[Rfam]
RNA sequence: CGAGUUGGCCGGGCAGUCGCUGUUGGAUGCUGUUUCAGUAUCUGGUGGAGGAAAGUCCGGGCUCCAUAGGGUGUGGCGCCAGGUAACGCCUGGGAGGCGAAAGCCUACGGAAAGUGCAGCAGAGAGCAGACCGCCUAAGUCACCAGCUGGUGACCGGUAAGGGUGAAAGGGUGCGGUAAGAGCGCACCGCGUGACUGGUAACAGUUCACGGCAUGGUAAACCCCGCCUGGAGCAAGACCAAAUAGGAAUCCUAGAGGUGUGGCCCGCACUGGAUUCGGGUAGGUUGCUUGAGGUGUCUGGUGACAGGCAUCCCAGAUGAAUGAUUGCCCAGACCUGUUUUACAGGUUGGACAGAACCCGGCUUACAGGCCAGCUCGAGAC
Numbered sequence: 001c002g003a004g005u006u007g008g009c010c011g012g013g014c015a016g017u018c019g020c021u022g023u024u025g026g027a028u029g030c031u032g033u034u035u036c037a038g039u040a041u042c043u044g045g046u047g048g049a050g051g052a053a054a055g056u057c058c059g060g061g062c063u064c065c066a067u068a069g070g071g072u073g074u075g076g077c078g079c080c081a082g083g084u085a086a087c088g089c090c091u092g093g094g095a096g097g098c099g100a101a102a103g104c105c106u107a108c109g110g111a112a113a114g115u116g117c118a119g120c121a122g123a124g125a126g127c128a129g130a131c132c133g134c135c136u137a138a139g140u141c142a143c144c145a146g147c148u149g150g151u152g153a154c155c156g157g158u159a160a161g162g163g164u165g166a167a168a169g170g171g172u173g174c175g176g177u178a179a180g181a182g183c184g185c186a187c188c189g190c191g192u193g194a195c196u197g198g199u200a201a202c203a204g205u206u207c208a209c210g211g212c213a214u215g216g217u218a219a220a221c222c223c224c225g226c227c228u229g230g231a232g233c234a235a236g237a238c239c240a241a242a243u244a245g246g247a248a249u250c251c252u253a254g255a256g257g258u259g260u261g262g263c264c265c266g267c268a269c270u271g272g273a274u275u276c277g278g279g280u281a282g283g284u285u286g287c288u289u290g291a292g293g294u295g296u297c298u299g300g301u302g303a304c305a306g307g308c309a310u311c312c313c314a315g316a317u318g319a320a321u322g323a324u325u326g327c328c329c330a331g332a333c334c335u336g337u338u339u340u341a342c343a344g345g346u347u348g349g350a351c352a353g354a355a356c357c358c359g360g361c362u363u364a365c366a367g368g369c370c371a372g373c374u375c376g377a378g379a380c
Stems, first nucleotide, its partner, number of pairs: 001376010011365001012328007020048011053363003057360005062232004069265004075227004079093005094108001095106004109223002114221002116217002131162002133158003139154006170188006189212001190210005195204003236285004246276006256270005292311008
Record summary
Shown here is a 380-nucleotide RNA from Endozoicomonas numazuensis, a member of the family "Bacterial RNase P class A". Rfam classes the family as a ribozyme.